[Rfam]
RNA sequence: AAGAUGCAUUAAGAAAGGGGUUAUCCCUGCCAACCUGCAUACCGUGCGAAGGUGGUAAUAUAUGCGGCCAAAAGGCAAAAAUAGGUCUCA
Numbered sequence: 001a002a003g004a005u006g007c008a009u010u011a012a013g014a015a016a017g018g019g020g021u022u023a024u025c026c027c028u029g030c031c032a033a034c035c036u037g038c039a040u041a042c043c044g045u046g047c048g049a050a051g052g053u054g055g056u057a058a059u060a061u062a063u064g065c066g067g068c069c070a071a072a073a074g075g076c077a078a079a080a081a082u083a084g085g086u087c088u089c090a
Stems, first nucleotide, its partner, number of pairs: 006065004015028001017027004029056003034052003037047003041088001067076003
Dot-bracket structure: .....((((.....(.((((...)))))(((..((((((.[...)))..))).))).....)))).(((....)))...........]..
A member of the RNA family "SAM-I/IV (S-adenosyl methionine) riboswitch aptamer", 90 nucleotides long. The sequence is in the family's curated seed alignment. The literature on the family includes a 2008 paper in RNA by Weinberg et al., "The aptamer core of SAM-IV riboswitches mimics the ligand-binding site of SAM-I riboswitches". Rfam 15.1 lists 567 matches to the family in 508 species. Pairs were carried over by alignment from the consensus structure, which is taken from published work.